[Rfam]
RNA: Ribosomal protein L10 leader
RNA sequence: AUUAAUAGGUGUUGACUGCCGAAGACAGCAGGUGCCGUAAGGCGUAAGGUACAGCCGCCUGCCGAGGAAAGAUGUAAAUUCACAGAUCGUGAUGAUUUUACGGAACCUCUCUGUCAUAUACGGCAGAGAGGUUUUUCUCAAAUGUA
Numbered sequence: 001a002u003u004a005a006u007a008g009g010u011g012u013u014g015a016c017u018g019c020c021g022a023a024g025a026c027a028g029c030a031g032g033u034g035c036c037g038u039a040a041g042g043c044g045u046a047a048g049g050u051a052c053a054g055c056c057g058c059c060u061g062c063c064g065a066g067g068a069a070a071g072a073u074g075u076a077a078a079u080u081c082a083c084a085g086a087u088c089g090u091g092a093u094g095a096u097u098u099u100a101c102g103g104a105a106c107c108u109c110u111c112u113g114u115c116a117u118a119u120a121c122g123g124c125a126g127a128g129a130g131g132u133u134u135u136u137c138u139c140a141a142a143u144g145u146a
Stems, first nucleotide, its partner, number of pairs: 028062006034043003106131010